Shown here is a 342-nucleotide RNA from Peucedramus taeniatus, a member of the family "7SK RNA". On this family, see Blencowe, Curr Biol 2002: "Transcription: surprising role for an elusive small nuclear RNA". The family is grouped with related families in Rfam's "7SK clan". It is annotated as a non-coding RNA gene. The family has 45 seed sequences and 49,373 matches in Rfam 15.1. Rfam describes the family as follows. 7SK was discovered as an abundant small nuclear RNA in the mid-70s but a possible function has only recently been suggested. Two independent studies have found that 7SK RNA binds the CDK9/cyclin T complex (known as elongation factor P-TEFb). P-TEFb activates transcription by phosphorylating the C-terminal domain of RNA polymerase II. This process is negatively regulated by the 7SK RNP. The secondary structure of 7SK RNA shown here was proposed by Wasserman and Steitz on the basis of chemical modification and enzymatic cleavage experiments.

[Rfam]
RNA sequence: GGAUAUGAGGGCAAUCUGGCUGCGACAUUUGUCAGCACACUGCUCUCCAGGCUUGAUUCAGCUGAUCUGGCUGGCAAGGUGCAUGUCCCCUUCCUCCCCCAACACUCCGUGUGUGUCCCUCCUGAAGCUGCACGCUCAGGCACAGAGGAUGACGUCCCCAAUAGAGAUGGUGCCAUUCACCGGUCAAGGGUACAGGGCAGCUGCGCUGCCCUGCCACAACCUCCAAACAAGCUCAAGGUCCAUUUCUAGGAGAACAUAGGGUAGUCAAGCUUCCAAGACUGCCAACACAUCCAAGUGAGGUGUUUCAAAAAACACUGGACAUUCCACGCAGCGCCACUCUUU
Numbered sequence: 001g002g003a004u005a006u007g008a009g010g011g012c013a014a015u016c017u018g019g020c021u022g023c024g025a026c027a028u029u030u031g032u033c034a035g036c037a038c039a040c041u042g043c044u045c046u047c048c049a050g051g052c053u054u055g056a057u058u059c060a061g062c063u064g065a066u067c068u069g070g071c072u073g074g075c076a077a078g079g080u081g082c083a084u085g086u087c088c089c090c091u092u093c094c095u096c097c098c099c100c101a102a103c104a105c106u107c108c109g110u111g112u113g114u115g116u117c118c119c120u121c122c123u124g125a126a127g128c129u130g131c132a133c134g135c136u137c138a139g140g141c142a143c144a145g146a147g148g149a150u151g152a153c154g155u156c157c158c159c160a161a162u163a164g165a166g167a168u169g170g171u172g173c174c175a176u177u178c179a180c181c182g183g184u185c186a187a188g189g190g191u192a193c194a195g196g197g198c199a200g201c202u203g204c205g206c207u208g209c210c211c212u213g214c215c216a217c218a219a220c221c222u223c224c225a226a227a228c229a230a231g232c233u234c235a236a237g238g239u240c241c242a243u244u245u246c247u248a249g250g251a252g253a254a255c256a257u258a259g260g261g262u263a264g265u266c267a268a269g270c271u272u273c274c275a276a277g278a279c280u281g282c283c284a285a286c287a288c289a290u291c292c293a294a295g296u297g298a299g300g301u302g303u304u305u306c307a308a309a310a311a312a313c314a315c316u317g318g319a320c321a322u323u324c325c326a327c328g329c330a331g332c333g334c335c336a337c338u339c340u341u342u
Base pairs, nucleotide, nucleotide: 001108002107003106006101007100009098010097011096014092018090019089024087025086026085027084028083030081031080032079033078036073038069039068042067044065045064047061116170117169119166120165121164122139123138124137125136127135128134147157148156149155200270201269202268206264207263209261210260211259212258213257221252222251223250224249227247229245230244231243293342294341295340297337299335300334301333302332303331304330306328